[Rfam]
RNA sequence: UCACCGCCAUCAUCACCCCAAAUAAUCUUUCGGGCGAUUGGUAGUGCUUGGAAGAUCUUCCAAGCGGUAUAGGUGGCUGUUAAUACAUAAAAACCUCAUAUAUUUGCCUCUUGGAAGCGCUCUUCUAAGAGGUUUUUUUU
Numbered sequence: 001u002c003a004c005c006g007c008c009a010u011c012a013u014c015a016c017c018c019c020a021a022a023u024a025a026u027c028u029u030u031c032g033g034g035c036g037a038u039u040g041g042u043a044g045u046g047c048u049u050g051g052a053a054g055a056u057c058u059u060c061c062a063a064g065c066g067g068u069a070u071a072g073g074u075g076g077c078u079g080u081u082a083a084u085a086c087a088u089a090a091a092a093a094c095c096u097c098a099u100a101u102a103u104u105u106g107c108c109u110c111u112u113g114g115a116a117g118c119g120c121u122c123u124u125c126u127a128a129g130a131g132g133u134u135u136u137u138u139u140u
Stems, first nucleotide, its partner, number of pairs: 008046003012038003017034003021030001047064007102137001106133012